Nucleotides: 047
Base pairs, nucleotide, nucleotide: 003020004019005018006015007014008013028047029046030045031044032043033042034041
Number, partner (000 for none) and nucleotide at each position: 001000g002000g003020u004019u005018g006015g007014g008013c009000g010000u011000g012000a013008g014007c015006u016000u017000u018005c019004a020003a021000g022000g023000u024000u025000a026000u027000u028047u029046u030045c031044u032043u033042c034041u035000a036000g037000g038000g039000c040000g041034a042033g043032a044031a045030g046029a047028a
Na+ riboswitch aptamer (DUF1646): a 47-nucleotide sequence from Alkalibacterium pelagium.
NCBI's taxonomy places the organism under Bacteria, Bacillati, Lactobacillales, Carnobacteriaceae, Alkalibacterium.
Rfam links the family to the GO terms sodium ion binding and regulation of gene expression.